RNA sequence: ACUGCUCAAAGGACUUUGCUGCAAACAUACUCAAAUUUGCAGCAAAGUCCUUUGAGCAGUU
Numbered sequence: 001a002c003u004g005c006u007c008a009a010a011g012g013a014c015u016u017u018g019c020u021g022c023a024a025a026c027a028u029a030c031u032c033a034a035a036u037u038u039g040c041a042g043c044a045a046a047g048u049c050c051u052u053u054g055a056g057c058a059g060u061u
Base pairs, nucleotide, nucleotide: 001060002059003058004057005056006055007054008053009052010051011050012049013048014047015046016045017044018043019042020041021040022039023038024037025036